[Rfam]
RNA sequence: UAAAAUAAUAACUAAUUAGCUUAUAUAUCCCCAAAAUAAGGUUGGGAGUUUCUAGACAGAUCCGUAAAUUCUGUACUAUAAGCAAAGGUCAUAGAUCU
Numbered sequence: 001u002a003a004a005a006u007a008a009u010a011a012c013u014a015a016u017u018a019g020c021u022u023a024u025a026u027a028u029c030c031c032c033a034a035a036a037u038a039a040g041g042u043u044g045g046g047a048g049u050u051u052c053u054a055g056a057c058a059g060a061u062c063c064g065u066a067a068a069u070u071c072u073g074u075a076c077u078a079u080a081a082g083c084a085a086a087g088g089u090c091a092u093a094g095a096u097c098u
Stems, first nucleotide, its partner, number of pairs: 019083007030046005056074005
Purine riboswitch aptamer: a 98-nucleotide sequence from Cetobacterium sp. 2A. A search with the family's covariance model found it, with a score of 65 bits. NCBI's taxonomy places the organism under Bacteria, Fusobacteriota, Fusobacteriia, Fusobacteriales, Cetobacterium.